[Rfam]
RNA sequence: AGAAUAAGGAAAGACUUCGUAAUUUUCCACACAAUAUUAUAUAUAUUGUGUGGAAAAUUACGAAGUCUUUCCUUAAUCC
Numbered sequence: 001a002g003a004a005u006a007a008g009g010a011a012a013g014a015c016u017u018c019g020u021a022a023u024u025u026u027c028c029a030c031a032c033a034a035u036a037u038u039a040u041a042u043a044u045a046u047u048g049u050g051u052g053g054a055a056a057a058u059u060a061c062g063a064a065g066u067c068u069u070u071c072c073u074u075a076a077u078c079c
Stems, first nucleotide, its partner, number of pairs: 007073019027053005
mir-1 microRNA precursor family: a 79-nucleotide RNA sequence from Ladona fulva. Rfam describes the family as follows. This family represents the microRNA (miRNA) mir-1 family. miRNAs are transcribed as ~70nt precursors (modelled here) and subsequently processed by the Dicer enzyme to give a ~22nt product. In this case the mature sequence comes from the 3' arm of the precursor. The match comes from Rfam's covariance-model search (46 bits). Gene Ontology terms of the family: miRNA-mediated post-transcriptional gene silencing and RISC complex.